Record summary: The family of this 108-nucleotide RNA sequence from Treponema denticola is "TD-2 RNA". The family is grouped with related families in Rfam's "TD (Treponema denticola) motifs". A reference for the family is Weinberg et al. (2007), "Identification of 22 candidate structured RNAs in bacteria using the CMfinder comparative genomics pipeline", Nucleic Acids Res.
RNA sequence: UUUUGCUUUAUGCAAAACUACAUACAAUAAUGCGAUGUUUUGUACCGUAUGUACAAAACUCGGCAGAUAAACAGUGAGGCUGAAUUUCUGCCGAACUGUUUAUCAUAC
Numbered sequence: 001u002u003u004u005g006c007u008u009u010a011u012g013c014a015a016a017a018c019u020a021c022a023u024a025c026a027a028u029a030a031u032g033c034g035a036u037g038u039u040u041u042g043u044a045c046c047g048u049a050u051g052u053a054c055a056a057a058a059c060u061c062g063g064c065a066g067a068u069a070a071a072c073a074g075u076g077a078g079g080c081u082g083a084a085u086u087u088c089u090g091c092c093g094a095a096c097u098g099u100u101u102a103u104c105a106u107a108c
Stems, first nucleotide, its partner, number of pairs: 001017006033062003037059008066104010078092002